[Rfam]
RNA sequence: CACAAUGUCUUUUAUUGAUAGACACCCAGAGUCACGGUUCGUCCAGGAUGAAAUAUGCCAGUGGACGUAUAUAUUUUACUCAGUAAGAUAUACGGUAAGGUACUAGUUGCUUUACUGCCGUGCUCGCGGUUGAUCUUAGAAUAAUCCUUUUUUGGAAUUUGAAAAGUAUCUACGCUAGAACUGUGAAUCAAUAUAAGUUAUGAUUAGAUAUUUCUUCACGUACAAAU
Number, nucleotide and partner (000 for none) at each position: 001c000002a000003c000004a000005a000006u000007g000008u000009c000010u000011u000012u000013u000014a000015u000016u000017g000018a000019u000020a136021g135022a134023c132024a131025c000026c129027c128028a000029g000030a000031g000032u000033c000034a121035c120036g119037g118038u000039u000040c067041g066042u065043c064044c063045a000046g000047g000048a056049u055050g054051a000052a000053a000054u050055a049056u048057g000058c000059c000060a000061g000062u000063g044064g043065a042066c041067g040068u000069a000070u092071a091072u090073a089074u088075u087076u000077u000078a084079c083080u000081c000082a000083g079084u078085a000086a000087g075088a074089u073090a072091u071092a070093c117094g116095g115096u114097a113098a112099g111100g110101u109102a108103c000104u000105a000106g000107u000108u102109g101110c100111u099112u098113u097114a096115c095116u094117g093118c037119c036120g035121u034122g000123c000124u000125c000126g000127c000128g027129g026130u000131u024132g023133a000134u022135c021136u020137u000138a000139g000140a000141a000142u000143a000144a000145u156146c155147c154148u000149u000150u000151u000152u000153u000154g147155g146156a145157a000158u000159u000160u218161g217162a216163a215164a213165a000166g211167u210168a209169u208170c207171u206172a000173c000174g000175c000176u000177a000178g000179a199180a198181c197182u196183g194184u193185g192186a000187a000188u000189c000190a000191a000192u185193a184194u183195a000196a182197g181198u180199u179200a000201u000202g000203a000204u000205u000206a171207g170208a169209u168210a167211u166212u000213u164214c000215u163216u162217c161218a160219c000220g000221u000222a000223c000224a000225a000226a000227u000
RNA: Small nucleolar RNA snR11
Organism: Kazachstania africana